Rfam assigns this 116-nucleotide RNA from Clostridium sp. CAG:149 to the family "SAM riboswitch aptamer (S box leader)". The base pairs follow the family's consensus structure, which is taken from published work. A search with the family's covariance model found it, with a score of 58 bits. The SAM riboswitch is found upstream of a number of genes which code for proteins involved in methionine or cysteine biosynthesis in Gram-positive bacteria. A reference for the family is Grundy and Henkin (1998), "The S box regulon: a new global transcription termination control system for methionine and cysteine biosynthesis genes in gram-positive bacteria", Mol Microbiol.

[Rfam]
RNA sequence: CCCUUAUUCAGAGUGAUGGAGAUACAAAGGAUCUGAGAAGUCACGGCAACCCCGCAGAAACGGAAGGUGCCAGCCUGAGCGAGGAACCGCAUGAGCGGCAAAUCGAGCAAUAAGAG
Number, nucleotide and partner (000 for none) at each position: 001c116002c000003c114004u113005u112006a111007u110008u109009c000010a000011g000012a000013g044014u043015g042016a041017u040018g000019g000020a000021g033022a032023u031024a000025c000026a000027a000028a000029g000030g076031a023032u022033c021034u000035g000036a000037g000038a000039a000040g017041u016042c015043a014044c013045g071046g070047c069048a068049a000050c067051c066052c063053c062054g061055c000056a000057g000058a000059a000060a000061c054062g053063g052064a000065a000066g051067g050068u048069g047070c046071c045072a000073g000074c000075c000076u030077g000078a000079g000080c105081g104082a103083g000084g000085a000086a000087c000088c000089g000090c000091a000092u000093g000094a000095g000096c000097g000098g000099c000100a000101a000102a000103u082104c081105g080106a000107g000108c000109a008110a007111u006112a005113a004114g003115a000116g001